[Rfam]
RNA sequence: AUGAGCCUGCACAUGAUGAAAACUAUGUUGGUAGGGACAUCUGAGAAGCUGAUGAAUGCCAACAUAGCUGAGCUGGACAU
Numbered sequence: 001a002u003g004a005g006c007c008u009g010c011a012c013a014u015g016a017u018g019a020a021a022a023c024u025a026u027g028u029u030g031g032u033a034g035g036g037a038c039a040u041c042u043g044a045g046a047a048g049c050u051g052a053u054g055a056a057u058g059c060c061a062a063c064a065u066a067g068c069u070g071a072g073c074u075g076g077a078c079a080u
Stems, first nucleotide, its partner, number of pairs: 001080003006076001